[Rfam]
RNA sequence: GGGGGCGUCCCGGCUUCGACUGGAUGCUGGAAUCGAUGGCUGCAUGUAGAGGUUGGUCGGUUGGCCUCUUAAAAAGCCGUCCAAAAACAUAAUUGCAGACUCUAACGAGCUCGCACUUGCUGCUUAAUUGACGGCAACGUCCCAAUCCUGAUGUCUGUUAGGGUGCGGGGCGACUACUUAGCAGACUGGCUGCAGCGCCGGGUAUCCGGGCAAAGCGGCGAGAACUAACAGGAUAAUCGGGAACCUAGAACGCGCCAGAUGAGGCUCGGGUUCCUUAAACUAGAAAACGUCUGGCUACACAUGUAGACGCUUUCAAGAAAGGCAUCUAGGACAGGGGUUCGACUCCCCUCGCCUCCACCA
Numbered sequence: 001g002g003g004g005g006c007g008u009c010c011c012g013g014c015u016u017c018g019a020c021u022g023g024a025u026g027c028u029g030g031a032a033u034c035g036a037u038g039g040c041u042g043c044a045u046g047u048a049g050a051g052g053u054u055g056g057u058c059g060g061u062u063g064g065c066c067u068c069u070u071a072a073a074a075a076g077c078c079g080u081c082c083a084a085a086a087a088c089a090u091a092a093u094u095g096c097a098g099a100c101u102c103u104a105a106c107g108a109g110c111u112c113g114c115a116c117u118u119g120c121u122g123c124u125u126a127a128u129u130g131a132c133g134g135c136a137a138c139g140u141c142c143c144a145a146u147c148c149u150g151a152u153g154u155c156u157g158u159u160a161g162g163g164u165g166c167g168g169g170g171c172g173a174c175u176a177c178u179u180a181g182c183a184g185a186c187u188g189g190c191u192g193c194a195g196c197g198c199c200g201g202g203u204a205u206c207c208g209g210g211c212a213a214a215g216c217g218g219c220g221a222g223a224a225c226u227a228a229c230a231g232g233a234u235a236a237u238c239g240g241g242a243a244c245c246u247a248g249a250a251c252g253c254g255c256c257a258g259a260u261g262a263g264g265c266u267c268g269g270g271u272u273c274c275u276u277a278a279a280c281u282a283g284a285a286a287a288c289g290u291c292u293g294g295c296u297a298c299a300c301a302u303g304u305a306g307a308c309g310c311u312u313u314c315a316a317g318a319a320a321g322g323c324a325u326c327u328a329g330g331a332c333a334g335g336g337g338u339u340c341g342a343c344u345c346c347c348c349u350c351g352c353c354u355c356c357a358c359c360a
Base pairs, nucleotide, nucleotide: 001356002355003354004353005352006351007350020329021328022327023326024325025324026323027322028321033316035314036313038311039310040309043303044302045301046300047299048069049068050067051066052065056081058079059078060077061076062075117137118136119135120134121133122132138172139171140170141169142168143167147163148162149161153186154185155184156183157182158181159180189219190218191217192216193215197211201234203232205230239275240274241273242272243271244270245269246268248266251263253261254295255294256293257292260287333349334348335347336346337345
A member of the RNA family "transfer-messenger RNA" from Roseibacillus persicicus, 360 nucleotides long. Clan: tRNA clan. Lineage of the source: Bacteria > Verrucomicrobiota > Verrucomicrobiales > Verrucomicrobiaceae > Roseibacillus. Rfam classes the family as a non-coding RNA gene. A search with the family's covariance model found it, with a score of 168 bits.